TD-1 RNA: a 138-nucleotide sequence from Treponema pedis. NCBI's taxonomy places the organism under Bacteria, Spirochaetota, Spirochaetia, Treponema, Treponema pedis. The family has 28 seed sequences and 147 matches in Rfam 15.1.

RNA sequence: AAAACACUGCCCGAGUUUGCUUGAAAAACAGUUUUGCAAACUCGCAUUAUUAUAUGUGCUUUUUCACUUACGUUGCAAAAGCACAAAAAUUCUGCAAUCCUCGACUUUUGAUAAAGUCUGCGGUUGCAGAAUUUAUAU
Numbered sequence: 001a002a003a004a005c006a007c008u009g010c011c012c013g014a015g016u017u018u019g020c021u022u023g024a025a026a027a028a029c030a031g032u033u034u035u036g037c038a039a040a041c042u043c044g045c046a047u048u049a050u051u052a053u054a055u056g057u058g059c060u061u062u063u064u065c066a067c068u069u070a071c072g073u074u075g076c077a078a079a080a081g082c083a084c085a086a087a088a089a090u091u092c093u094g095c096a097a098u099c100c101u102c103g104a105c106u107u108u109u110g111a112u113a114a115a116g117u118c119u120g121c122g123g124u125u126g127c128a129g130a131a132u133u134u135a136u137a138u
Stems, first nucleotide, its partner, number of pairs: 013043008056084008089132009099123002103118006